[Rfam]
RNA sequence: GUCGGCUACGGAGAUAUGGUACCCAAAACGUACGUGGGUAUGUUUGUGGGCGCUCUGUGUGCCCUGGCGGGUGUGCUCACGAUUGCCCUUCCCGUGCCAGUCAUAGUGUCUAAU
Numbered sequence: 001g002u003c004g005g006c007u008a009c010g011g012a013g014a015u016a017u018g019g020u021a022c023c024c025a026a027a028a029c030g031u032a033c034g035u036g037g038g039u040a041u042g043u044u045u046g047u048g049g050g051c052g053c054u055c056u057g058u059g060u061g062c063c064c065u066g067g068c069g070g071g072u073g074u075g076c077u078c079a080c081g082a083u084u085g086c087c088c089u090u091c092c093c094g095u096g097c098c099a100g101u102c103a104u105a106g107u108g109u110c111u112a113a114u
Base pairs, nucleotide, nucleotide: 001114002113004111005110007108008107009106011104013102014101015100018097021095022094037077038076039075040074049063050062051061